Rfam assigns this 157-nucleotide RNA from Populus alba to the family "MIR2912 microRNA precursor family". The family has 2 seed sequences and 15,051 matches in Rfam 15.1.

Nucleotides: 157
Stems, first nucleotide, its partner, number of pairs: 003155004009146001012144009021134001023132001025130001027129003035123003048112004054105003059100002062098002068092001072088003
Number, partner (000 for none) and nucleotide at each position: 001000u002000c003155u004154a005153g006152a007000a008000c009146u010000c011000c012144a013143g014142a015141u016140a017139u018138g019137g020136g021134c022000c023132a024000a025130a026000c027129a028128c029127u030000a031000a032000a033000u034000a035123g036122u037121g038000u039000u040000c041000g042000g043000g044000c045000u046000g047000c048112g049111g050110g051109a052000c053000a054105g055104a056103u057000u058000c059100g060099g061000a062098c063097u064000u065000c066000u067000c068092u069000g070000u071000u072088g073087u074086u075000g076000c077000u078000a079000u080000a081000a082000u083000u084000u085000g086074g087073a088072c089000u090000u091000g092068a093000a094000a095000a096000c097063g098062g099060c100059c101000u102000u103056a104055u105054u106000a107000g108000a109051u110050c111049u112048u113000g114000a115000u116000g117000a118000a119000a120000a121037c122036a123035u124000g125000a126000a127029a128028g129027u130025u131000g132023u133000a134021g135000g136020u137019c138018u139017a140016u141015g142014u143013c144012u145000u146009a147000u148000u149000g150000a151000a152006u153005c154004u155003g156000u157000g